[Rfam]
RNA sequence: GACAGACUCAAAACCGCGAGGCUCGCCCCACACAGAAAAAAAUCCCAUUUUUUUCUCACUCGCGAGCGGGUUAAGGUCUGAGUAUUCCAGUCAUUUUCAACGAUCGGUCCUAGCAGGAUCCCGAGUCUAAUCUCCCGACUCGCACCGGCGUAUCAGAAAACCGCAUCUUUCUCACCUUUUUCUAAUCCCAAAGACCUCGUCCUUGUCUUAACCGAUAAGCGACGACGAGGGAAAAAGUCCCUCUCCUUUGUUGGAUGGGGGAGACUUGGGGUGUUCGGAAGGAGCUUGGAAUUCGCCGGAAUGACUUGGGCUCCUUUAUCUAUCCUCUACCGUUUUCGCUCUCUCUUGCAGAGGGUGGAAGGGGGUUGGGGUGAUAUUUUGGGGUCCUUUAGCUCACUUCGCUGUGCGCCUGUUAUUAUGAAUGACUCUGUCGUUCGUAAGGUGUAACUCGAUUCAGACUACUCUCUGUCUGUC
Numbered sequence: 001g002a003c004a005g006a007c008u009c010a011a012a013a014c015c016g017c018g019a020g021g022c023u024c025g026c027c028c029c030a031c032a033c034a035g036a037a038a039a040a041a042a043u044c045c046c047a048u049u050u051u052u053u054u055c056u057c058a059c060u061c062g063c064g065a066g067c068g069g070g071u072u073a074a075g076g077u078c079u080g081a082g083u084a085u086u087c088c089a090g091u092c093a094u095u096u097u098c099a100a101c102g103a104u105c106g107g108u109c110c111u112a113g114c115a116g117g118a119u120c121c122c123g124a125g126u127c128u129a130a131u132c133u134c135c136c137g138a139c140u141c142g143c144a145c146c147g148g149c150g151u152a153u154c155a156g157a158a159a160a161c162c163g164c165a166u167c168u169u170u171c172u173c174a175c176c177u178u179u180u181u182c183u184a185a186u187c188c189c190a191a192a193g194a195c196c197u198c199g200u201c202c203u204u205g206u207c208u209u210a211a212c213c214g215a216u217a218a219g220c221g222a223c224g225a226c227g228a229g230g231g232a233a234a235a236a237g238u239c240c241c242u243c244u245c246c247u248u249u250g251u252u253g254g255a256u257g258g259g260g261g262a263g264a265c266u267u268g269g270g271g272u273g274u275u276c277g278g279a280a281g282g283a284g285c286u287u288g289g290a291a292u293u294c295g296c297c298g299g300a301a302u303g304a305c306u307u308g309g310g311c312u313c314c315u316u317u318a319u320c321u322a323u324c325c326u327c328u329a330c331c332g333u334u335u336u337c338g339c340u341c342u343c344u345c346u347u348g349c350a351g352a353g354g355g356u357g358g359a360a361g362g363g364g365g366u367u368g369g370g371g372u373g374a375u376a377u378u379u380u381g382g383g384g385u386c387c388u389u390u391a392g393c394u395c396a397c398u399u400c401g402c403u404g405u406g407c408g409c410c411u412g413u414u415a416u417u418a419u420g421a422a423u424g425a426c427u428c429u430g431u432c433g434u435u436c437g438u439a440a441g442g443u444g445u446a447a448c449u450c451g452a453u454u455c456a457g458a459c460u461a462c463u464c465u466c467u468g469u470c471u472g473u474c
Base pairs, nucleotide, nucleotide: 001474002473003472004471010465013405014404016402017401018400019399021067022066023065024064025063035053036052037051038050039049040048078457079456080455081454082453089306090305091304092303106120107119108118109117110116122142123141124140125139126138127137145299146298147297148296149295150294167284168283169282170281406445407444408443409442410441411440

The record is a 474-nucleotide sequence from Leucocoprinus leucothites, which matches "Nuclear RNase P" in Rfam. From the family's description: Ribonuclease P (RNase P) is a ubiquitous endoribonuclease, found in archaea, bacteria and eukarya as well as chloroplasts and mitochondria. Its best characterised activity is the generation of mature 5'-ends of tRNAs by cleaving the 5'-leader elements of precursor-tRNAs. Cellular RNase Ps are ribonucleoproteins. RNA from bacterial RNase Ps retains its catalytic activity in the absence of the protein subunit, i.e. it is a ribozyme. Taxonomically the source falls in Leucocoprinus (Eukaryota, Fungi, Dikarya, Agaricomycetes). It scores 60 bits against the family's covariance model. Its Rfam clan is "RNaseP clan". The family's RNA type in Rfam is ribozyme.